Rfam assigns this 116-nucleotide sequence from Pantoea ananatis to the family "Insertion sequence IS1222 ribosomal frameshifting element". Rfam classes the family as a frameshift element. The family has 5 seed sequences and 89 matches in Rfam 15.1. The organism belongs to Pantoea ananatis, within Bacteria. This family represents the insertion sequence IS1222 ribosomal frameshifting element. The element stimulates frameshifting which is known to be required for transposition. For this family Rfam cites "-1 frameshifting at a CGA AAG hexanucleotide site is required for transposition of insertion sequence IS1222" (Mejlhede et al., J Bacteriol, 2004).
[Rfam]
RNA sequence: UGCAUUACAGGUGGUUGAGCCGAUAAUACUGACGACAGAUCGCAAGCGGGAAGCGGUUGCAGUGAGGUGUGAAGUGAUGAGUCUGUCACGACCUCGUGCGUGCACGUAUGCUGAUU
Numbered sequence: 001u002g003c004a005u006u007a008c009a010g011g012u013g014g015u016u017g018a019g020c021c022g023a024u025a026a027u028a029c030u031g032a033c034g035a036c037a038g039a040u041c042g043c044a045a046g047c048g049g050g051a052a053g054c055g056g057u058u059g060c061a062g063u064g065a066g067g068u069g070u071g072a073a074g075u076g077a078u079g080a081g082u083c084u085g086u087c088a089c090g091a092c093c094u095c096g097u098g099c100g101u102g103c104a105c106g107u108a109u110g111c112u113g114a115u116u
Stems, first nucleotide, its partner, number of pairs: 034087007046057002049054001061078001063076002